[Rfam]
RNA sequence: GUGCGCACGGGAGAUGGCAUUCCUCCUUUAACCGCCCUUUGCGGCUGAUGAUGCCUACCAUUCC
Dot-bracket structure: .........[[[[..((((((.]]]].......(((......)))....)))))).........